[Rfam]
Shown here is a 54-nucleotide RNA from Brevundimonas basaltis, a member of the family "sul1 RNA". The source organism's lineage runs through Bacteria, Pseudomonadati, Pseudomonadota, Caulobacteraceae and Brevundimonas. The base pairs follow the family's consensus structure, which is taken from published work.
RNA sequence: CAAGGACCCGGUCCGACCGGGUGGCUAGCCCGGCCGCCGAUCCGCCGGGAAACC
Numbered sequence: 001c002a003a004g005g006a007c008c009c010g011g012u013c014c015g016a017c018c019g020g021g022u023g024g025c026u027a028g029c030c031c032g033g034c035c036g037c038c039g040a041u042c043c044g045c046c047g048g049g050a051a052a053c054c
Stems, first nucleotide, its partner, number of pairs: 006022006029049006
Dot-bracket structure: .....((((((.....))))))......((((((.........)))))).....